The family of this 425-nucleotide RNA from Afipia carboxidovorans is "Bacterial RNase P class A". Pairs were carried over by alignment from the consensus structure, which is taken from published work. The sequence is in the family's curated seed alignment. Taxonomically the source falls in Afipia carboxidovorans (Bacteria, Hyphomicrobiales, Nitrobacteraceae, Afipia).
[Rfam]
RNA sequence: UCAGUCGGCCGGACGGCCGCUCUUGCAGGAUCGAAAGGUCGCAAGGGAGGAAAGUCCGGGCUCCAUCGACAUACGGUGCCGGAUAACAUCCGGCGAAGGCGACUUCAGGGAAAGUGCCACAGAGAACGAACCGCCACGCCCCCGCAAGGGUGGCUCGGUAAGGGUGAAAAGGUGCGGUAAGAGCGCACCGCGUCUCCGGCAACGGAGGCGGCAUGGCAAACCCCACCGGGAGCAAAACCGAAUAGGGACGGCACAGCGGAAAGUUCGUCUUCGGACGAUAACCCCGCGGGGUCAUGUCGGACCCGCCGUCCGGGUAGGUUGCUUGAGGCGCGCAGCAAUCCGCGUCCCAGAGGAAUGGCCGUCACGUCUGCAUGGUGCGAACCGUGCAGGCCCUCCAGAACCCGGCUUACAGGCUGGCUGACAUC
Numbered sequence: 001u002c003a004g005u006c007g008g009c010c011g012g013a014c015g016g017c018c019g020c021u022c023u024u025g026c027a028g029g030a031u032c033g034a035a036a037g038g039u040c041g042c043a044a045g046g047g048a049g050g051a052a053a054g055u056c057c058g059g060g061c062u063c064c065a066u067c068g069a070c071a072u073a074c075g076g077u078g079c080c081g082g083a084u085a086a087c088a089u090c091c092g093g094c095g096a097a098g099g100c101g102a103c104u105u106c107a108g109g110g111a112a113a114g115u116g117c118c119a120c121a122g123a124g125a126a127c128g129a130a131c132c133g134c135c136a137c138g139c140c141c142c143c144g145c146a147a148g149g150g151u152g153g154c155u156c157g158g159u160a161a162g163g164g165u166g167a168a169a170a171g172g173u174g175c176g177g178u179a180a181g182a183g184c185g186c187a188c189c190g191c192g193u194c195u196c197c198g199g200c201a202a203c204g205g206a207g208g209c210g211g212c213a214u215g216g217c218a219a220a221c222c223c224c225a226c227c228g229g230g231a232g233c234a235a236a237a238c239c240g241a242a243u244a245g246g247g248a249c250g251g252c253a254c255a256g257c258g259g260a261a262a263g264u265u266c267g268u269c270u271u272c273g274g275a276c277g278a279u280a281a282c283c284c285c286g287c288g289g290g291g292u293c294a295u296g297u298c299g300g301a302c303c304c305g306c307c308g309u310c311c312g313g314g315u316a317g318g319u320u321g322c323u324u325g326a327g328g329c330g331c332g333c334a335g336c337a338a339u340c341c342g343c344g345u346c347c348c349a350g351a352g353g354a355a356u357g358g359c360c361g362u363c364a365c366g367u368c369u370g371c372a373u374g375g376u377g378c379g380a381a382c383c384g385u386g387c388a389g390g391c392c393c394u395c396c397a398g399a400a401c402c403c404g405g406c407u408u409a410c411a412g413g414c415u416g417g418c419u420g421a422c423a424u425c
Stems, first nucleotide, its partner, number of pairs: 001421010011410001012363007020047007028039001052408003056405005061232004074228005079093005094108001095106004109223002114221002116217003131163002133159003138154003171189006190212001191210008236320004246311006289304005327346006334339001